[Rfam]
Rfam assigns this 87-nucleotide RNA sequence from Medicago truncatula to the family "MIR2617 microRNA precursor family".
Nucleotides: 087
Stems, first nucleotide, its partner, number of pairs: 002087001005084001007082008016074006
Number, partner (000 for none) and nucleotide at each position: 001000a002087u003000g004000u005084a006000g007082u008081g009080u010079g011078a012077c013076a014075u015000g016074c017073c018072c019071g020070u021069u022000u023000g024000a025000u026000g027000a028000u029000a030000u031000a032000c033000u034000c035000u036000g037000a038000u039000u040000u041000a042000u043000u044000a045000u046000c047000u048000g049000u050000u051000a052000u053000u054000u055000a056000a057000u058000u059000g060000c061000u062000u063000u064000g065000g066000g067000a068000u069021a070020a071019c072018g073017g074016g075014g076013u077012g078011u079010u080009a081008c082007a083000a084005u085000u086000g087002g
Source information: Its family is annotated with RISC complex and miRNA-mediated post-transcriptional gene silencing in the Gene Ontology.